[Rfam]
RNA: mir-8517 microRNA precursor family
Organism: Plutella xylostella
RNA sequence: CUAGUGGACGCUUUAGCUAUUGAACUGUUCUGUCACUCUCUGACAGAGAAAAAUUUGUUCUUUGGCAGAGAGGGACAACAGUUCAAUAGCUAAAGCUUCCACUAAC
Numbered sequence: 001c002u003a004g005u006g007g008a009c010g011c012u013u014u015a016g017c018u019a020u021u022g023a024a025c026u027g028u029u030c031u032g033u034c035a036c037u038c039u040c041u042g043a044c045a046g047a048g049a050a051a052a053a054u055u056u057g058u059u060c061u062u063u064g065g066c067a068g069a070g071a072g073g074g075a076c077a078a079c080a081g082u083u084c085a086a087u088a089g090c091u092a093a094a095g096c097u098u099c100c101a102c103u104a105a106c
Stems, first nucleotide, its partner, number of pairs: 002104005011095018029069007049059002052056001